A member of the RNA family "TPP riboswitch aptamer (THI element)" from Blastochloris viridis, 107 nucleotides long.

RNA sequence: GCCCGUCCGAAGGGGGGCCCCGUGCGGGGCUGAGAUCGGGAGCGCCCGACCACCCUUUGAACCUGAACCGGUUCGUACCGGCGGAGGGAUGCGGACGUCGCGGGCCA
Numbered sequence: 001g002c003c004c005g006u007c008c009g010a011a012g013g014g015g016g017g018c019c020c021c022g023u024g025c026g027g028g029g030c031u032g033a034g035a036u037c038g039g040g041a042g043c044g045c046c047c048g049a050c051c052a053c054c055c056u057u058u059g060a061a062c063c064u065g066a067a068c069c070g071g072u073u074c075g076u077a078c079c080g081g082c083g084g085a086g087g088g089a090u091g092c093g094g095a096c097g098u099c100g101c102g103g104g105c106c107a
Stems, first nucleotide, its partner, number of pairs: 006095004011056004016050001017030005037048004062087003068081004
Rfam links the family to the GO term thiamine pyrophosphate binding. The organism belongs to Blastochloris, within Bacteria. Rfam's curators write: Vitamin B(1) in its active form thiamin pyrophosphate (TPP) is an essential coenzyme that is synthesised by coupling of pyrimidine and thiazole moieties in bacteria. The previously detected thiamin-regulatory element, thi box was extended, resulting in a new, highly conserved RNA secondary structure, the THI element, which is widely distributed in eubacteria and also occurs in some archaea. Analysis of operon structures identified a large number of new candidate thiamin-regulated genes, mostly transporters, in various prokaryotic organisms. The THI element is a riboswitch that directly binds to TPP to regulate gene expression through a variety of mechanisms in archaea, bacteria and eukaryotes. through a variety of mechanisms in archaea, bacteria and eukaryotes. Tandem TPP riboswitches have been reported where both TPP riboswitches respond independently to TPP. The structure of TPP riboswitch has been reported for Escherichia coli and Arabidopsis thaliana. The match comes from Rfam's covariance-model search (63 bits).